[Rfam]
RNA sequence: UCGCACUUGUUGAUAUAUGAGGUUCCUCUAGCUACAGUUGUGGAACCUUCACUCAAGGUGCAAAAAGAAAAAGCUGUUCUGCAGCAGCGGUCAGACAACCGUAGAGAUGGAUCCACAGAUGAUUUGUUUGCAAUACAACUCGUCUACUAAUUCUAUCUCACACUU
Numbered sequence: 001u002c003g004c005a006c007u008u009g010u011u012g013a014u015a016u017a018u019g020a021g022g023u024u025c026c027u028c029u030a031g032c033u034a035c036a037g038u039u040g041u042g043g044a045a046c047c048u049u050c051a052c053u054c055a056a057g058g059u060g061c062a063a064a065a066a067g068a069a070a071a072a073g074c075u076g077u078u079c080u081g082c083a084g085c086a087g088c089g090g091u092c093a094g095a096c097a098a099c100c101g102u103a104g105a106g107a108u109g110g111a112u113c114c115a116c117a118g119a120u121g122a123u124u125u126g127u128u129u130g131c132a133a134u135a136c137a138a139c140u141c142g143u144c145u146a147c148u149a150a151u152u153c154u155a156u157c158u159c160a161c162a163c164u165u
Stems, first nucleotide, its partner, number of pairs: 003061004009054001019049008028040001030038001104159008121141002124138003

small nucleolar RNA snoR143: a 165-nucleotide RNA from Ensete ventricosum. The literature on the family includes a 2009 paper in Nucleic Acids Res by Chen and Wu, "Mining small RNA sequencing data: a new approach to identify small nucleolar RNAs in Arabidopsis". Rfam 15.1 lists 660 matches to the family in 212 species. Taxonomically the source falls in Ensete (Eukaryota, Streptophytina, Liliopsida, Musaceae). The match comes from Rfam's covariance-model search (85 bits).